Notes
Rfam assigns this 153-nucleotide RNA sequence from Geobacter sulfurreducens to the family "TPP riboswitch aptamer (THI element)". The family's consensus secondary structure is taken from published work. From the family's description: Vitamin B(1) in its active form thiamin pyrophosphate (TPP) is an essential coenzyme that is synthesised by coupling of pyrimidine and thiazole moieties in bacteria.
[Rfam]
RNA sequence: UCGAACCGCUAGGGGAGUUUCGGCUGAGAGCCCGUCUGUGAUGCCGUUCGGACCGCGCCCGGAUAACAGGGAAUAACGCGGCACGGAGCGGCAGGGCGACCCUUCGAACCUGAUCCGGGUAAUACCGGCGUAGGGAAGCGAUAGAACAUGGAU
Numbered sequence: 001u002c003g004a005a006c007c008g009c010u011a012g013g014g015g016a017g018u019u020u021c022g023g024c025u026g027a028g029a030g031c032c033c034g035u036c037u038g039u040g041a042u043g044c045c046g047u048u049c050g051g052a053c054c055g056c057g058c059c060c061g062g063a064u065a066a067c068a069g070g071g072a073a074u075a076a077c078g079c080g081g082c083a084c085g086g087a088g089c090g091g092c093a094g095g096g097c098g099a100c101c102c103u104u105c106g107a108a109c110c111u112g113a114u115c116c117g118g119g120u121a122a123u124a125c126c127g128g129c130g131u132a133g134g135g136a137a138g139c140g141a142u143a144g145a146a147c148a149u150g151g152a153u
Stems, first nucleotide, its partner, number of pairs: 007140004011103004017024002031096003109134004115128004